Annotation: The family of this 158-nucleotide RNA sequence from Streptomyces echinoruber is "c-di-AMP riboswitch aptamer (ydaO/yuaA leader)".
RNA sequence: CGUACCCGACCACCCGUGCACGGCAGGAGCGGGGGACCCACAGGUACGACCGCCUGUCCCGGUUCCCGGAACAGGCUAGGGGUGAAGCCGCGUCCCACGCGGCCGGGCAGCUCCAGCCCGAACCCGACAGCUCACCUCGCAGGCGCCGGAGAGGAAUG
Numbered sequence: 001c002g003u004a005c006c007c008g009a010c011c012a013c014c015c016g017u018g019c020a021c022g023g024c025a026g027g028a029g030c031g032g033g034g035g036a037c038c039c040a041c042a043g044g045u046a047c048g049a050c051c052g053c054c055u056g057u058c059c060c061g062g063u064u065c066c067c068g069g070a071a072c073a074g075g076c077u078a079g080g081g082g083u084g085a086a087g088c089c090g091c092g093u094c095c096c097a098c099g100c101g102g103c104c105g106g107g108c109a110g111c112u113c114c115a116g117c118c119c120g121a122a123c124c125c126g127a128c129a130g131c132u133c134a135c136c137u138c139g140c141a142g143g144c145g146c147c148g149g150a151g152a153g154g155a156a157u158g
Stems, first nucleotide, its partner, number of pairs: 001142001006027002029140006039079001080125003088102004105119004

It scores 54 bits against the family's covariance model. The pairing is the family consensus, mapped onto this sequence.